RNA sequence: UCCCCGAAAUGGCAACUUGCACCGAAAGGGUAAGACGCAAAUUAGCAGGCCUAAAAUCCAAGCAUUAGGGGUAUGGAUGCUGCUAGUGUCGAA
Number, nucleotide and partner (000 for none) at each position: 001u000002c000003c000004c000005c000006g000007a000008a000009a000010u000011g000012g038013c037014a000015a000016c000017u033018u032019g031020c030021a000022c029023c028024g000025a000026a000027a000028g023029g022030g020031u019032a018033a017034g000035a000036c000037g013038c012039a000040a000041a087042u086043u085044a084045g000046c082047a081048g080049g000050c076051c075052u000053a000054a000055a000056a000057u070058c069059c068060a000061a000062g000063c000064a000065u000066u000067a000068g059069g058070g057071g000072u000073a000074u000075g051076g050077a000078u000079g000080c048081u047082g046083c000084u044085a043086g042087u041088g000089u000090c000091g000092a000093a000